Overview: Shown here is a 101-nucleotide sequence from Bacillus sp. OxB-1, a member of the family "Purine riboswitch aptamer".
RNA sequence: GGAAUAACUAAAUAAUCGCAUCGUAUAAUUUGGGGAAUAUGGCCCUUAAGUCUCUACCGGACACCUUAAAUGAUCCGACUACGAUUUUUGAAUUAAAAACG
Numbered sequence: 001g002g003a004a005u006a007a008c009u010a011a012a013u014a015a016u017c018g019c020a021u022c023g024u025a026u027a028a029u030u031u032g033g034g035g036a037a038u039a040u041g042g043c044c045c046u047u048a049a050g051u052c053u054c055u056a057c058c059g060g061a062c063a064c065c066u067u068a069a070a071u072g073a074u075c076c077g078a079c080u081a082c083g084a085u086u087u088u089u090g091a092a093u094u095a096a097a098a099a100c101g
Base pairs, nucleotide, nucleotide: 018087020085021084022083023082024081025080029049030048032046033045034044035043058077059076060075061074062072063071
The base pairs follow the family's consensus structure, which is taken from published work. The match comes from Rfam's covariance-model search (72 bits). Lineage of the source: Bacteria > Bacillati > Bacillota > Caryophanales > Bacillus. Rfam links the family to the GO term purine nucleobase biosynthetic process.